[Rfam]
RNA sequence: CAGAGGUCUGGGCAAAACCGGAGUGAUCCGGCGACGCAAAGCUAUAGGGACUUCGCUGGACGAAGUCAGCCAGUUGCCCGC
Numbered sequence: 001c002a003g004a005g006g007u008c009u010g011g012g013c014a015a016a017a018c019c020g021g022a023g024u025g026a027u028c029c030g031g032c033g034a035c036g037c038a039a040a041g042c043u044a045u046a047g048g049g050a051c052u053u054c055g056c057u058g059g060a061c062g063a064a065g066u067c068a069g070c071c072a073g074u075u076g077c078c079c080g081c
Stems, first nucleotide, its partner, number of pairs: 012037002018031005040075004047071002049067007
RNA: c-di-GMP-I riboswitch aptamer
Organism: Ralstonia sp. 5_2_56FAA